[Rfam]
The record is a 165-nucleotide RNA sequence from Roseibium suaedae, which matches "Manganese Mn2+ riboswitch aptamer (yybP-ykoY)" in Rfam. It scores 62 bits against the family's covariance model. The source organism's lineage runs through Bacteria, Alphaproteobacteria, Hyphomicrobiales, Stappiaceae and Roseibium.

RNA sequence: UUCCCGGUCAUCGGGGAGUAGCAGGCGCCAGCGAUGGCGGAGGCACGUCAACAUACUCGCGGGGAUGUCCGCGUGGCGUGUCUGGCUCUUGGGCUUUGCAAGACCGUGGCGGUGGGAUUCUGCGGGCGGAAUCCGUCCAUCGCCCGGCUCAGCCCACAGGACUUC
Number, nucleotide and partner (000 for none) at each position: 001u000002u000003c000004c000005c000006g000007g000008u000009c000010a000011u000012c000013g000014g000015g000016g000017a000018g000019u000020a000021g000022c000023a000024g000025g000026c039027g038028c037029c000030a000031g000032c000033g000034a000035u000036g000037g028038c027039g026040g000041a083042g082043g081044c080045a079046c078047g077048u076049c075050a074051a000052c000053a000054u000055a000056c000057u000058c073059g072060c071061g070062g069063g000064g000065a000066u000067g000068u000069c062070c061071g060072c059073g058074u050075g049076g048077c047078g046079u045080g044081u043082c042083u041084g164085g163086c000087u161088c160089u159090u158091g000092g000093g000094c000095u000096u000097u000098g000099c000100a000101a000102g000103a000104c000105c000106g000107u000108g000109g000110c000111g000112g000113u000114g000115g000116g000117a000118u000119u000120c000121u000122g000123c000124g000125g000126g000127c000128g000129g000130a000131a000132u000133c000134c000135g000136u000137c000138c000139a000140u000141c000142g000143c000144c000145c000146g000147g000148c000149u000150c000151a000152g000153c000154c000155c000156a000157c000158a090159g089160g088161a087162c000163u085164u084165c000